[Rfam]
RNA sequence: GGAAGGGCUUAUAAUCCUUCCUGUGGGUGACCGAAUAAGCCUGUCGUGAGCGGGCUAAAGUAUGCAGAUCCCUGUGGUAGGGUUGGUAGAGUUCAAUCGAAUGAGCCAAAUGACAAUACCAUGUCUAGUCUGUAGUUUGAAGUAGGUACACAAUGAACUGAUGUUCACGCCGAAAAAUUGGAGGUAUACAGUAGUCCUUCCCCACAUCUA
Numbered sequence: 001g002g003a004a005g006g007g008c009u010u011a012u013a014a015u016c017c018u019u020c021c022u023g024u025g026g027g028u029g030a031c032c033g034a035a036u037a038a039g040c041c042u043g044u045c046g047u048g049a050g051c052g053g054g055c056u057a058a059a060g061u062a063u064g065c066a067g068a069u070c071c072c073u074g075u076g077g078u079a080g081g082g083u084u085g086g087u088a089g090a091g092u093u094c095a096a097u098c099g100a101a102u103g104a105g106c107c108a109a110a111u112g113a114c115a116a117u118a119c120c121a122u123g124u125c126u127a128g129u130c131u132g133u134a135g136u137u138u139g140a141a142g143u144a145g146g147u148a149c150a151c152a153a154u155g156a157a158c159u160g161a162u163g164u165u166c167a168c169g170c171c172g173a174a175a176a177a178u179u180g181g182a183g184g185u186a187u188a189c190a191g192u193a194g195u196c197c198u199u200c201c202c203c204a205c206a207u208c209u210a
Stems, first nucleotide, its partner, number of pairs: 001021006023205005030061002043055003064133006071082003075121004084108004111127001112125003137177002154167003158191003162188001180200005
This 210-nucleotide RNA sequence belongs to the Rfam family "manA RNA". manA RNA has been located in 5'UTR regions of genes of mannose or fructose metabolism. Has been proposed as a cis-regulatory element and as a riboswitch candidate for his complex secondary structure. It is annotated as a cis-regulatory element. The base pairs follow the family's consensus structure, which is taken from published work. The sequence is in the family's curated seed alignment.